[Rfam]
RNA: Eukaryotic large subunit ribosomal RNA, nucleotides 2059 to 2616
Organism: Sciurus carolinensis
RNA sequence: UAGAAUAAAGUAGGUAAGGGAAGUCGGCAAAAUAGAUUCGUAACUUUGGAAAAAGGAUUGGCUCUGAGAGUUGGGUGCGUAGGGCUUAUUUUAAAAAAUUUUUACAAGUGGUUGAGGCUACUUAAUUUAAUGUUAAAUGUAAUUUCUUGUUAAAUUGCUUUUAACGUAAUUUUAAGCGGAUUCAUUAUGCAUUAGUAAGAUUUGAAACUUAGGUCGGAUUAUAGUUGUGACUUCUUACAUUUAUGUCUGUUUGACCUUGCAUAGUGAACAACUGUCUCAGAACUGAAACGGACAAGGGGAAUCCGACUGUUUAAUUAAAACAAAGCAUUGUGAUGUCUGUAAUUGGUGUUGACGCAAUGUGAUUUCUGCCCAGUGCUCUGAAUGUCAAUGUGAUGAAAUUCAAUGAAGCGCGGGUAAACGGCGGGAGUAACUAUGACUCUCUUAAGGUAGCCAAAUGCCUCGUCAUCUAAUUAGUGACGCGCAUGAAUGGAUUAACGAGAUUCCUACUGUCCCUAUCUACUAUCUAGCGAAACCACAGCCAAGGGAACGGGCUUGGAA
Numbered sequence: 001u002a003g004a005a006u007a008a009a010g011u012a013g014g015u016a017a018g019g020g021a022a023g024u025c026g027g028c029a030a031a032a033u034a035g036a037u038u039c040g041u042a043a044c045u046u047u048g049g050a051a052a053a054a055g056g057a058u059u060g061g062c063u064c065u066g067a068g069a070g071u072u073g074g075g076u077g078c079g080u081a082g083g084g085c086u087u088a089u090u091u092u093a094a095a096a097a098a099u100u101u102u103u104a105c106a107a108g109u110g111g112u113u114g115a116g117g118c119u120a121c122u123u124a125a126u127u128u129a130a131u132g133u134u135a136a137a138u139g140u141a142a143u144u145u146c147u148u149g150u151u152a153a154a155u156u157g158c159u160u161u162u163a164a165c166g167u168a169a170u171u172u173u174a175a176g177c178g179g180a181u182u183c184a185u186u187a188u189g190c191a192u193u194a195g196u197a198a199g200a201u202u203u204g205a206a207a208c209u210u211a212g213g214u215c216g217g218a219u220u221a222u223a224g225u226u227g228u229g230a231c232u233u234c235u236u237a238c239a240u241u242u243a244u245g246u247c248u249g250u251u252u253g254a255c256c257u258u259g260c261a262u263a264g265u266g267a268a269c270a271a272c273u274g275u276c277u278c279a280g281a282a283c284u285g286a287a288a289c290g291g292a293c294a295a296g297g298g299g300a301a302u303c304c305g306a307c308u309g310u311u312u313a314a315u316u317a318a319a320a321c322a323a324a325g326c327a328u329u330g331u332g333a334u335g336u337c338u339g340u341a342a343u344u345g346g347u348g349u350u351g352a353c354g355c356a357a358u359g360u361g362a363u364u365u366c367u368g369c370c371c372a373g374u375g376c377u378c379u380g381a382a383u384g385u386c387a388a389u390g391u392g393a394u395g396a397a398a399u400u401c402a403a404u405g406a407a408g409c410g411c412g413g414g415u416a417a418a419c420g421g422c423g424g425g426a427g428u429a430a431c432u433a434u435g436a437c438u439c440u441c442u443u444a445a446g447g448u449a450g451c452c453a454a455a456u457g458c459c460u461c462g463u464c465a466u467c468u469a470a471u472u473a474g475u476g477a478c479g480c481g482c483a484u485g486a487a488u489g490g491a492u493u494a495a496c497g498a499g500a501u502u503c504c505u506a507c508u509g510u511c512c513c514u515a516u517c518u519a520c521u522a523u524c525u526a527g528c529g530a531a532a533c534c535a536c537a538g539c540c541a542a543g544g545g546a547a548c549g550g551g552c553u554u555g556g557a558a
Stems, first nucleotide, its partner, number of pairs: 001526004009521008018512003035059005044049001060284002063281006069273005075262005082255001285289001297505007304497002308322003325360008337346003364491003368422003373419002375415004380411001383410003391402003423441006442446001462478005539556005